[Rfam]
RNA: S-element
Organism: Rhizobium johnstonii
RNA sequence: AGUCAAGAGUCUUGGCACCGAUUUGGUGAGCGGAUUUCUUUUGCCUGAAGAAAGGUGAGAGAAAAA
Numbered sequence: 001a002g003u004c005a006a007g008a009g010u011c012u013u014g015g016c017a018c019c020g021a022u023u024u025g026g027u028g029a030g031c032g033g034a035u036u037u038c039u040u041u042u043g044c045c046u047g048a049a050g051a052a053a054g055g056u057g058a059g060a061g062a063a064a065a066a
Stems, first nucleotide, its partner, number of pairs: 010062002012059002016057004022052003028046001030044005